Description: This 77-nucleotide sequence from Ornithinibacillus halophilus belongs to the Rfam family "Glycine riboswitch aptamer". It scores 39 bits against the family's covariance model.
[Rfam]
RNA sequence: UCUCUGGAGAGCGCUUCAUCCACCCAAGGGGUACACCUUCUACUUAUAGGUAAAACUCUCAGGUACAAGGACAGAGA
Numbered sequence: 001u002c003u004c005u006g007g008a009g010a011g012c013g014c015u016u017c018a019u020c021c022a023c024c025c026a027a028g029g030g031g032u033a034c035a036c037c038u039u040c041u042a043c044u045u046a047u048a049g050g051u052a053a054a055a056c057u058c059u060c061a062g063g064u065a066c067a068a069g070g071a072c073a074g075a076g077a
Stems, first nucleotide, its partner, number of pairs: 001077006013020001022064003026059001029058003035051004